[Rfam]
RNA sequence: ACCAAAGACGUGCUUGGAUCUGUGCCCAGCGAUCCCCUGUUCGCUUUGGCGAAUUCAGGGUCGAUUGCUGCGGCAGUUCGAUUUCUCCAAGGAGCACAUCAAUAGUUUCUUCUCAUGAUGUCAAUCUUCCAAUCGACAGGUCCUAGAUCAAUCCGCGGGGUGGGGAGUAUCAGGCACCAGGGUUCGCUUCGGCUUGAGCCCUGCGUGCCUUUUCCCACCUCCAUGAAGACGCCAUAUUCCACACCGUUCGCCGAGAUCGUCGAUCUAUGAGGCUGGGGAAAACCAUGGCUUGCCCUACAGAU
Numbered sequence: 001a002c003c004a005a006a007g008a009c010g011u012g013c014u015u016g017g018a019u020c021u022g023u024g025c026c027c028a029g030c031g032a033u034c035c036c037c038u039g040u041u042c043g044c045u046u047u048g049g050c051g052a053a054u055u056c057a058g059g060g061u062c063g064a065u066u067g068c069u070g071c072g073g074c075a076g077u078u079c080g081a082u083u084u085c086u087c088c089a090a091g092g093a094g095c096a097c098a099u100c101a102a103u104a105g106u107u108u109c110u111u112c113u114c115a116u117g118a119u120g121u122c123a124a125u126c127u128u129c130c131a132a133u134c135g136a137c138a139g140g141u142c143c144u145a146g147a148u149c150a151a152u153c154c155g156c157g158g159g160g161u162g163g164g165g166a167g168u169a170u171c172a173g174g175c176a177c178c179a180g181g182g183u184u185c186g187c188u189u190c191g192g193c194u195u196g197a198g199c200c201c202u203g204c205g206u207g208c209c210u211u212u213u214c215c216c217a218c219c220u221c222c223a224u225g226a227a228g229a230c231g232c233c234a235u236a237u238u239c240c241a242c243a244c245c246g247u248u249c250g251c252c253g254a255g256a257u258c259g260u261c262g263a264u265c266u267a268u269g270a271g272g273c274u275g276g277g278g279a280a281a282a283c284c285a286u287g288g289c290u291u292g293c294c295c296u297a298c299a300g301a302u
Stems, first nucleotide, its partner, number of pairs: 016143008024074003027070003031066004035060005041053001042051003082135001086132001091122002094119001097117001155222001159219006174208004180201006186193002228294001230292001231289005244278002247275001250273003255265004

This 302-nucleotide RNA sequence from Coniella lustricola belongs to the Rfam family "A. fumigatus sRNA Afu_309". For this family Rfam cites "Small ncRNA transcriptome analysis from Aspergillus fumigatus suggests a novel mechanism for regulation of protein synthesis" (Jochl et al., Nucleic Acids Res, 2008). The family's RNA type in Rfam is small RNA. The source organism's lineage runs through Eukaryota, Opisthokonta, Dikarya, Ascomycota and Coniella.